[Rfam]
RNA sequence: CAACAACAUCAAGAGUUGGGCGCGACCCAACGCCAACCUGCCGUCCGGGCAAGGUGGUGCCUUCUUCAGAAGGGAUGUGGCUUUGACCGGCAAACAAACGGACUCUC
Numbered sequence: 001c002a003a004c005a006a007c008a009u010c011a012a013g014a015g016u017u018g019g020g021c022g023c024g025a026c027c028c029a030a031c032g033c034c035a036a037c038c039u040g041c042c043g044u045c046c047g048g049g050c051a052a053g054g055u056g057g058u059g060c061c062u063u064c065u066u067c068a069g070a071a072g073g074g075a076u077g078u079g080g081c082u083u084u085g086a087c088c089g090g091c092a093a094a095c096a097a098a099c100g101g102a103c104u105c106u107c
Stems, first nucleotide, its partner, number of pairs: 006078005015031006032058003037054003040050003046101001080091003
The family of this 107-nucleotide sequence from Aureimonas fodinaquatilis is "SAM-I/IV (S-adenosyl methionine) riboswitch aptamer".
The family's consensus secondary structure is taken from published work.
The family is grouped with related families in Rfam's "SAM clan".
A reference for the family is Trausch et al. (2014), "Structural basis for diversity in the SAM clan of riboswitches", PNAS.